[Rfam]
RNA sequence: UAAAUUCUGGAGAGUGGCGCGGUUGCGCCCGCCGACGGGAUAGCGAUCUCAGGCAAAAGGACAGAAGGGGCGGC
Numbered sequence: 001u002a003a004a005u006u007c008u009g010g011a012g013a014g015u016g017g018c019g020c021g022g023u024u025g026c027g028c029c030c031g032c033c034g035a036c037g038g039g040a041u042a043g044c045g046a047u048c049u050c051a052g053g054c055a056a057a058a059g060g061a062c063a064g065a066a067g068g069g070g071c072g073g074c
Base pairs, nucleotide, nucleotide: 005066006065007064008063009062016029017028018027019026031054032053033052034050035049038048039047
The family of this 74-nucleotide RNA from Gluconobacter wancherniae is "Glycine riboswitch aptamer". The pairing is the family consensus, mapped onto this sequence.